Rfam assigns this 184-nucleotide RNA from Dellaglioa algida to the family "Lysine riboswitch aptamer". The source organism's lineage runs through Bacteria, Bacillati, Bacillota, Lactobacillaceae and Dellaglioa algida. A search with the family's covariance model found it, with a score of 110 bits.
[Rfam]
RNA sequence: AUCGAAAGAAGAGGAUGCAGUUUUCAUGAGUAUGUUUAACGAGGCAAUUAAGUGCUGAAGAACUUAAACAGAAAGGGUAGACUGCCGAAGUGGACGCUAACUUAAAUUUAGUGACUGCUGGGUUUUGGCUUAAUAAGUCAAAGACUGUCGUGGUCAAUAACGACCACGGGGCGCUUAUAACGAU
Numbered sequence: 001a002u003c004g005a006a007a008g009a010a011g012a013g014g015a016u017g018c019a020g021u022u023u024u025c026a027u028g029a030g031u032a033u034g035u036u037u038a039a040c041g042a043g044g045c046a047a048u049u050a051a052g053u054g055c056u057g058a059a060g061a062a063c064u065u066a067a068a069c070a071g072a073a074a075g076g077g078u079a080g081a082c083u084g085c086c087g088a089a090g091u092g093g094a095c096g097c098u099a100a101c102u103u104a105a106a107u108u109u110a111g112u113g114a115c116u117g118c119u120g121g122g123u124u125u126u127g128g129c130u131u132a133a134u135a136a137g138u139c140a141a142a143g144a145c146u147g148u149c150g151u152g153g154u155c156a157a158u159a160a161c162g163a164c165c166a167c168g169g170g171g172c173g174c175u176u177a178u179a180a181c182g183a184u
Base pairs, nucleotide, nucleotide: 007178009176010175011174017085018084019083020082021081022080023079025077033070034069035068036067037066038065039064089119090118091117092116093115095113096112097111098110099109100108120146121145123143124142125141126140127139128138129137130136148169149168150167151166152165153164154163